The record is a 121-nucleotide RNA from Castor canadensis, which matches "Small nucleolar RNA SNORA63" in Rfam. The family's consensus secondary structure was predicted with PFOLD. From the family's description: E3 belongs to the H/ACA class of snoRNAs and is involved in the processing of eukaryotic pre-rRNA and has regions of complementarity to 18S rRNA. E3 is encoded in introns in the gene for protein synthesis initiation factor 4AII. It is annotated as an H/ACA-box small nucleolar RNA. The literature on the family includes a 1997 paper in Proc Natl Acad Sci U S A by Mishra and Eliceiri, "Three small nucleolar RNAs that are involved in ribosomal RNA precursor processing".
RNA sequence: AUGCAGGUAAAGUUACAAUAUAACAAGUGUUUUAUUGUCGUUCCCCCUGCACAAAGCAUUUGAUACAUUACUAUCUCUGUCAAGCUUCAUUCCAUAGUAAGAGACGCUUGGUCUCAAACAU
Numbered sequence: 001a002u003g004c005a006g007g008u009a010a011a012g013u014u015a016c017a018a019u020a021u022a023a024c025a026a027g028u029g030u031u032u033u034a035u036u037g038u039c040g041u042u043c044c045c046c047c048u049g050c051a052c053a054a055a056g057c058a059u060u061u062g063a064u065a066c067a068u069u070a071c072u073a074u075c076u077c078u079g080u081c082a083a084g085c086u087u088c089a090u091u092c093c094a095u096a097g098u099a100a101g102a103g104a105c106g107c108u109u110g111g112u113c114u115c116a117a118a119c120a121u
Base pairs, nucleotide, nucleotide: 003050004049005048006047007046015038016037017036018035019034020033022031023030024029076102077101078100081097